[Rfam]
RNA sequence: AACUUUUACGAGGUAUCAGCACUUUUCUUUCAUUAGUGGGGAAGGAAGGAUGAAAAAUACGAAACAGGAGUAGACUUUUAAAGUUUAAAUAGAUAGGUCUGAGUGCCUGAACGUGCUCUUCCAUUUUACUUUAACCAUCCAAAGAAGCUGAUCAGCAAGGGUAAGUUGAAAGUUUUCCUUUUUC
Number, nucleotide and partner (000 for none) at each position: 001a000002a000003c019004u018005u000006u000007u015008a014009c013010g000011a000012g000013g009014u008015a007016u000017c000018a004019g003020c000021a000022c000023u000024u000025u000026u000027c000028u000029u146030u145031c144032a000033u142034u141035a000036g139037u000038g000039g136040g135041g132042a131043a130044g129045g000046a000047a000048g000049g125050a124051u123052g122053a000054a000055a000056a120057a119058u000059a000060c000061g000062a000063a000064a000065c000066a000067g000068g000069a000070g000071u000072a100073g099074a098075c097076u096077u095078u000079u000080a000081a000082a000083g000084u000085u000086u000087a000088a000089a000090u000091a000092g000093a000094u000095a077096g076097g075098u074099c073100u072101g116102a000103g114104u113105g112106c000107c000108u000109g000110a000111a000112c105113g104114u103115g000116c101117u000118c000119u057120u056121c000122c052123a051124u050125u049126u000127u000128a000129c044130u043131u042132u041133a000134a000135c040136c039137a000138u000139c036140c000141a034142a033143a000144g031145a030146a029147g000148c000149u000150g000151a000152u000153c000154a000155g000156c000157a181158a180159g179160g178161g177162u000163a176164a175165g174166u000167u172168g000169a000170a000171a000172g167173u000174u165175u164176u163177c161178c160179u159180u158181u157182u000183u000184c000
Annotation: A member of the RNA family "Connexin-43 internal ribosome entry site (IRES)" from Oxyruncus cristatus, 184 nucleotides long. For this family Rfam cites "Connexin43 mRNA contains a functional internal ribosome entry site" (Schiavi et al., FEBS Lett, 1999). About the family: This family represents the connexin-43 internal ribosome entry site (IRES) which allows cap independent translation during conditions such as heat shock and stress. Taxonomically the source falls in Oxyruncus (Eukaryota, Sarcopterygii, Sauropsida, Archelosauria).